[Rfam]
RNA sequence: UCAAGGGCGUACAUAUCUUGCUUCUAGCAUUUCCCUGUACGUUAGCUAUGACCGCAAGGUAGCAAUGACGUUGGGCCAGUCAGCGCUGAGUCGUUUGAUCAACGAGCGCUGCUGGU
Numbered sequence: 001u002c003a004a005g006g007g008c009g010u011a012c013a014u015a016u017c018u019u020g021c022u023u024c025u026a027g028c029a030u031u032u033c034c035c036u037g038u039a040c041g042u043u044a045g046c047u048a049u050g051a052c053c054g055c056a057a058g059g060u061a062g063c064a065a066u067g068a069c070g071u072u073g074g075g076c077c078a079g080u081c082a083g084c085g086c087u088g089a090g091u092c093g094u095u096u097g098a099u100c101a102a103c104g105a106g107c108g109c110u111g112c113u114g115g116u
Base pairs, nucleotide, nucleotide: 006066007042008041009040010039012037013036019029020028021027022026045063046062052059053058076115077114078113079112081111082110083109084108085107086106087105095102096101